[Rfam]
RNA sequence: GGUAGUUCUCAGGUGAUGCACUCUGGAAUCGGGCUCCCUCCUUUCUGGUUCCGGGUGUGUCACCUGAGAACCGCU
Numbered sequence: 001g002g003u004a005g006u007u008c009u010c011a012g013g014u015g016a017u018g019c020a021c022u023c024u025g026g027a028a029u030c031g032g033g034c035u036c037c038c039u040c041c042u043u044u045c046u047g048g049u050u051c052c053g054g055g056u057g058u059g060u061c062a063c064c065u066g067a068g069a070a071c072c073g074c075u
Stems, first nucleotide, its partner, number of pairs: 002074002005071013019057005025052009
mir-9223 microRNA precursor family: a 75-nucleotide RNA sequence from Myotis myotis. Taxonomically the source falls in Myotis (Eukaryota, Opisthokonta, Chordata, Gnathostomata). Gene Ontology terms of the family: RISC complex and miRNA-mediated post-transcriptional gene silencing. The family's consensus secondary structure was predicted with RNAalifold.